A member of the RNA family "Small nucleolar RNA R11/Z151" from Anisodus acutangulus, 85 nucleotides long. The family's consensus secondary structure was predicted with PFOLD. The family's RNA type in Rfam is C/D-box small nucleolar RNA. Its family is annotated with RNA processing and nucleolus in the Gene Ontology. Lineage of the source: Eukaryota > Mesangiospermae > Gunneridae > Solanoideae > Anisodus.

RNA sequence: GGGAUUAUGAUGAUAACAUAAAUUAUCUUAGCGGAUUUCAGUUAGAUUUAAUUAUCAAUGAUCUGAUUGUUACACACUGAUUUCC
Numbered sequence: 001g002g003g004a005u006u007a008u009g010a011u012g013a014u015a016a017c018a019u020a021a022a023u024u025a026u027c028u029u030a031g032c033g034g035a036u037u038u039c040a041g042u043u044a045g046a047u048u049u050a051a052u053u054a055u056c057a058a059u060g061a062u063c064u065g066a067u068u069g070u071u072a073c074a075c076a077c078u079g080a081u082u083u084c085c
Base pairs, nucleotide, nucleotide: 001085002084003083004082